[Rfam]
RNA sequence: GCGCAACUACGCUGUCUACGCAGCUGCGCAGUCUGUAUUGAGGUUGUCCGCACCGACACGGGGCAACACGGACCUUGGGA
Numbered sequence: 001g002c003g004c005a006a007c008u009a010c011g012c013u014g015u016c017u018a019c020g021c022a023g024c025u026g027c028g029c030a031g032u033c034u035g036u037a038u039u040g041a042g043g044u045u046g047u048c049c050g051c052a053c054c055g056a057c058a059c060g061g062g063g064c065a066a067c068a069c070g071g072a073c074c075u076u077g078g079g080a
Stems, first nucleotide, its partner, number of pairs: 001029005007023002010020002031073006043067007
Annotation:
A member of the RNA family "aspS RNA" from Collinsella sp. zg1085, 80 nucleotides long. By type it is a cis-regulatory element. The family's consensus secondary structure is taken from published work.